[Rfam]
RNA sequence: ACCCCACACUAUUAAGCCGACAAUUUCAAUGUAUUUCAAUUGAAACUGUGUGCUCGUUGUGGGAACAGCAAAGUCUGCUCAUCGUGUAUGGUUGUAUUUAUUAUUAUGGUAUAAUCAAAGAAUUGAUGCUGGACA
Numbered sequence: 001a002c003c004c005c006a007c008a009c010u011a012u013u014a015a016g017c018c019g020a021c022a023a024u025u026u027c028a029a030u031g032u033a034u035u036u037c038a039a040u041u042g043a044a045a046c047u048g049u050g051u052g053c054u055c056g057u058u059g060u061g062g063g064a065a066c067a068g069c070a071a072a073g074u075c076u077g078c079u080c081a082u083c084g085u086g087u088a089u090g091g092u093u094g095u096a097u098u099u100a101u102u103a104u105u106a107u108g109g110u111a112u113a114a115u116c117a118a119a120g121a122a123u124u125g126a127u128g129c130u131g132g133a134c135a
Stems, first nucleotide, its partner, number of pairs: 020049003024045004077129002089117007098109004
Description:
The family of this 135-nucleotide RNA from Bombus vosnesenskii is "Small nucleolar RNA snoR639/H1". By type it is an H/ACA-box small nucleolar RNA. Rfam 15.1 lists 77 matches to the family in 63 species. Rfam's curators write: snoR639 or snoH1 belongs to the H/ACA class of snoRNAs which are thought to guide the sites of modification of uridines to pseudouridines. snoH1 is found in an intron of the mfl gene in Drosophila. A search with the family's covariance model found it, with a score of 48 bits.